Overview
This 152-nucleotide RNA from Calidithermus roseus belongs to the Rfam family "SAM riboswitch aptamer (S box leader)". The organism belongs to Calidithermus, within Bacteria.
[Rfam]
RNA sequence: CUUCUAUCCAGAGCAGUCGAGGGAACGGCCCGAUGACACUGCGGCAACCUGUAGCCGCGCUCGCCCAUCGCCGAGCAGGCGGCUACGUCUGGUGCUAACUCCGCCUCGAGCCCUAUUGCUAGGCCCAGCCAUGGCUCGGGGAAAGAUAGAAG
Numbered sequence: 001c002u003u004c005u006a007u008c009c010a011g012a013g014c015a016g017u018c019g020a021g022g023g024a025a026c027g028g029c030c031c032g033a034u035g036a037c038a039c040u041g042c043g044g045c046a047a048c049c050u051g052u053a054g055c056c057g058c059g060c061u062c063g064c065c066c067a068u069c070g071c072c073g074a075g076c077a078g079g080c081g082g083c084u085a086c087g088u089c090u091g092g093u094g095c096u097a098a099c100u101c102c103g104c105c106u107c108g109a110g111c112c113c114u115a116u117u118g119c120u121a122g123g124c125c126c127a128g129c130c131a132u133g134g135c136u137c138g139g140g141g142a143a144a145g146a147u148a149g150a151a152g
Stems, first nucleotide, its partner, number of pairs: 001152008013042005021031003026103003043096004048092002100144001104141009